A member of the RNA family "Small nucleolar RNA SNORA9" from Pteropus vampyrus, 130 nucleotides long. From the family's description: ACA9 is a member of the H/ACA class of snoRNA that guide the sites of modification of uridines to pseudouridines. The organism belongs to Pteropus, within Eukaryota.

[Rfam]
RNA sequence: CUGCAAGCCUCAUGUCCUUGGGUCUGCCGUGACCCUGUGCAUUACUACGGUGCUUGCAAGAAUAUUUUGAAAUGGUUUGAGGCCUUGCCCUGCUGCAUCCAGAGCAAGGUUAUAGAAACUUCAGACAAUU
Numbered sequence: 001c002u003g004c005a006a007g008c009c010u011c012a013u014g015u016c017c018u019u020g021g022g023u024c025u026g027c028c029g030u031g032a033c034c035c036u037g038u039g040c041a042u043u044a045c046u047a048c049g050g051u052g053c054u055u056g057c058a059a060g061a062a063u064a065u066u067u068u069g070a071a072a073u074g075g076u077u078u079g080a081g082g083c084c085u086u087g088c089c090c091u092g093c094u095g096c097a098u099c100c101a102g103a104g105c106a107a108g109g110u111u112a113u114a115g116a117a118a119c120u121u122c123a124g125a126c127a128a129u130u
Stems, first nucleotide, its partner, number of pairs: 003057006015041001017039001020035005068123004083109006090102003
It is annotated as an H/ACA-box small nucleolar RNA.